The family of this 70-nucleotide RNA is "narK RNA". By type it is a cis-regulatory element.

RNA sequence: GGCCCGCCUCUUGCUUUAGCACCCUCAGGUAGCCAAAGGCGGUUGCCACCACUCACGACAAAGACGUCGC
Numbered sequence: 001g002g003c004c005c006g007c008c009u010c011u012u013g014c015u016u017u018a019g020c021a022c023c024c025u026c027a028g029g030u031a032g033c034c035a036a037a038g039g040c041g042g043u044u045g046c047c048a049c050c051a052c053u054c055a056c057g058a059c060a061a062a063g064a065c066g067u068c069g070c
Stems, first nucleotide, its partner, number of pairs: 028047007